[Rfam]
Nucleotides: 128
Stems, first nucleotide, its partner, number of pairs: 002059002005055005017043003021037004066121004076112001082107005090101002
Number, partner (000 for none) and nucleotide at each position: 001000u002059c003058u004000a005055g006054a007053g008052g009051a010000u011000c012000a013000a014000g015000a016000a017043g018042g019041c020000u021037g022036u023035c024034u025000g026000a027000u028000g029000a030000a031000g032000c033000a034024a035023g036022a037021c038000u039000u040000u041019g042018c043017u044000g045000a046000u047000a048000c049000a050000u051009u052008c053007c054006u055005c056000c057000u058003a059002g060000a061000g062000a063000a064000a065000g066121g067120g068119g069118u070000g071000g072000a073000g074000a075000g076112a077000a078000c079000a080000g081000a082107g083106u084105c085104c086103u087000u088000a089000u090101u091100g092000a093000a094000g095000a096000a097000a098000a099000c100091c101090a102000c103086a104085g105084g106083g107082u108000c109000a110000a111000c112076u113000c114000u115000a116000c117000u118069a119068c120067c121066c122000a123000a124000c125000a126000u127000u128000u